[Rfam]
RNA sequence: AACUUUUACGAGGUAUCAGCACUUUUCUUUCAUGAGUGGGGAAGGAAGGAUGAAAAAUAGAAAGCAGCCGUAGACUGUUCAAGUUUAAAUAGCCAGGUCUGGGUGCCUGAACGUGCUCUUCCAUUUUACUUUUAACCCUCCAAAGAAGUUUUCUGAUCCAGUUGCACUGCUGAUCAGCAAGGGUAAGUUGGAAGUU
Numbered sequence: 001a002a003c004u005u006u007u008a009c010g011a012g013g014u015a016u017c018a019g020c021a022c023u024u025u026u027c028u029u030u031c032a033u034g035a036g037u038g039g040g041g042a043a044g045g046a047a048g049g050a051u052g053a054a055a056a057a058u059a060g061a062a063a064g065c066a067g068c069c070g071u072a073g074a075c076u077g078u079u080c081a082a083g084u085u086u087a088a089a090u091a092g093c094c095a096g097g098u099c100u101g102g103g104u105g106c107c108u109g110a111a112c113g114u115g116c117u118c119u120u121c122c123a124u125u126u127u128a129c130u131u132u133u134a135a136c137c138c139u140c141c142a143a144a145g146a147a148g149u150u151u152u153c154u155g156a157u158c159c160a161g162u163u164g165c166a167c168u169g170c171u172g173a174u175c176a177g178c179a180a181g182g183g184u185a186a187g188u189u190g191g192a193a194g195u196u
Stems, first nucleotide, its partner, number of pairs: 003019002007015003029147003033143001036140001038138003041132004049125004056120002072100005101116001103114003157192006165183001167181001168179004

Rfam assigns this 196-nucleotide RNA from Chloroceryle aenea to the family "Connexin-43 internal ribosome entry site (IRES)". The base pairs follow the family's consensus structure, which is taken from published work. Taxonomically the source falls in Chloroceryle (Eukaryota, Opisthokonta, Tetrapoda, Coraciimorphae). From the family's description: This family represents the connexin-43 internal ribosome entry site (IRES) which allows cap independent translation during conditions such as heat shock and stress.